[Rfam]
RNA: U4atac minor spliceosomal RNA
RNA sequence: UUCAUCCUUUUCUUGGAGUUGUGCUACUGUCCAAUGAGUGCAUAGUGAGGGCAGUACUGCUAAUACCUAAACAACACACUCGCAUCAACUAAAGCUCUGCUUUAUGUUGGUACAAUUUUUGGAAGA
Numbered sequence: 001u002u003c004a005u006c007c008u009u010u011u012c013u014u015g016g017a018g019u020u021g022u023g024c025u026a027c028u029g030u031c032c033a034a035u036g037a038g039u040g041c042a043u044a045g046u047g048a049g050g051g052c053a054g055u056a057c058u059g060c061u062a063a064u065a066c067c068u069a070a071a072c073a074a075c076a077c078a079c080u081c082g083c084a085u086c087a088a089c090u091a092a093a094g095c096u097c098u099g100c101u102u103u104a105u106g107u108u109g110g111u112a113c114a115a116u117u118u119u120u121g122g123a124a125g126a
Stems, first nucleotide, its partner, number of pairs: 006018001008016002021060003026055007038046002082113001084111004090104006